[Rfam]
RNA sequence: AUGACUUAUGAUAAAGCUGUAAUUAUUUCAUAGUAAUUACCAUAAAAGAAUAAUCAAAAAGGAAUUAUGAUAUAAU
Numbered sequence: 001a002u003g004a005c006u007u008a009u010g011a012u013a014a015a016g017c018u019g020u021a022a023u024u025a026u027u028u029c030a031u032a033g034u035a036a037u038u039a040c041c042a043u044a045a046a047a048g049a050a051u052a053a054u055c056a057a058a059a060a061g062g063a064a065u066u067a068u069g070a071u072a073u074a075a076u
Base pairs, nucleotide, nucleotide: 030071031070033068034067035066036065037064
Dot-bracket structure: .............................((.(((((..........................))))).)).....
Record summary:
dfrA-dnaX RNA: a 76-nucleotide sequence.